[Rfam]
RNA sequence: GUAUCUGCAAGGUAUUAACCGAAGACAGCAGGUAUCUAUAGCUUCCAUGGUCGUAUAUCGCAGUUUUUCUGCAUCGAACGAAAAGCUAAAGGAUCUAAAGAGCAAUCGCCCGCCGAGGAAAGAAUAAAGGAUUGGCUUCAGAAAUGAAGCAUGGAAUUCGUAUUUUCAUCCCCUGUCUUUGGCAGGGGAUUUUUUAAUUCUUAC
Numbered sequence: 001g002u003a004u005c006u007g008c009a010a011g012g013u014a015u016u017a018a019c020c021g022a023a024g025a026c027a028g029c030a031g032g033u034a035u036c037u038a039u040a041g042c043u044u045c046c047a048u049g050g051u052c053g054u055a056u057a058u059c060g061c062a063g064u065u066u067u068u069c070u071g072c073a074u075c076g077a078a079c080g081a082a083a084a085g086c087u088a089a090a091g092g093a094u095c096u097a098a099a100g101a102g103c104a105a106u107c108g109c110c111c112g113c114c115g116a117g118g119a120a121a122g123a124a125u126a127a128a129g130g131a132u133u134g135g136c137u138u139c140a141g142a143a144a145u146g147a148a149g150c151a152u153g154g155a156a157u158u159c160g161u162a163u164u165u166u167c168a169u170c171c172c173c174u175g176u177c178u179u180u181g182g183c184a185g186g187g188g189a190u191u192u193u194u195u196a197a198u199u200c201u202u203a204c
Stems, first nucleotide, its partner, number of pairs: 028113002031110003034094003169189009
RNA: Ribosomal protein L10 leader